About this RNA
The record is a 69-nucleotide RNA sequence from Nonomuraea phyllanthi, which matches "ASpks TB sRNA" in Rfam. The organism belongs to Nonomuraea, within Bacteria. By type it is an antisense RNA. The base pairs follow the family's consensus structure, which is taken from published work.

[Rfam]
RNA sequence: CUUCAACGACCCCAGCCACAACGGCUCCUCACGCCCCUGCCCAUAGGUAGCGAGCAGCGCCUGAGCCUC
Numbered sequence: 001c002u003u004c005a006a007c008g009a010c011c012c013c014a015g016c017c018a019c020a021a022c023g024g025c026u027c028c029u030c031a032c033g034c035c036c037c038u039g040c041c042c043a044u045a046g047g048u049a050g051c052g053a054g055c056a057g058c059g060c061c062u063g064a065g066c067c068u069c
Stems, first nucleotide, its partner, number of pairs: 014026004028065003032059002037054002041050001043048001